[Rfam]
RNA sequence: UCUGGUGAUGAAGACACACUUGCCUUUGCUGAGAAUGGUAUUCAGUAAUGAGCAUUGUAUUCAUACAAUCCGAGCCAGA
Numbered sequence: 001u002c003u004g005g006u007g008a009u010g011a012a013g014a015c016a017c018a019c020u021u022g023c024c025u026u027u028g029c030u031g032a033g034a035a036u037g038g039u040a041u042u043c044a045g046u047a048a049u050g051a052g053c054a055u056u057g058u059a060u061u062c063a064u065a066c067a068a069u070c071c072g073a074g075c076c077a078g079a
Base pairs, nucleotide, nucleotide: 001079002078003077004076005075006074